[Rfam]
mir-544 microRNA precursor family: a 98-nucleotide sequence from Suricata suricatta. Gene Ontology terms of the family: miRNA-mediated post-transcriptional gene silencing and RISC complex. Pairs were carried over by alignment from the consensus structure, which was predicted with RNAalifold. A search with the family's covariance model found it, with a score of 69 bits. A reference for the family is Chiang et al. (2010), "Mammalian microRNAs: experimental evaluation of novel and previously annotated genes", Genes Dev.
RNA sequence: CUCGCCUGGGGAUCUUAUUAAAAUGCAGAUUCUGAUUCCAUGUGUCUGGGGUAGUGUCCAAGGUUGUGCAUUUCUAAUGAGCCCCCCAGUGAUGCUCA
Numbered sequence: 001c002u003c004g005c006c007u008g009g010g011g012a013u014c015u016u017a018u019u020a021a022a023a024u025g026c027a028g029a030u031u032c033u034g035a036u037u038c039c040a041u042g043u044g045u046c047u048g049g050g051g052u053a054g055u056g057u058c059c060a061a062g063g064u065u066g067u068g069c070a071u072u073u074c075u076a077a078u079g080a081g082c083c084c085c086c087c088a089g090u091g092a093u094g095c096u097c098a
Stems, first nucleotide, its partner, number of pairs: 003091003009085003014081007021073003025069003029065001031063003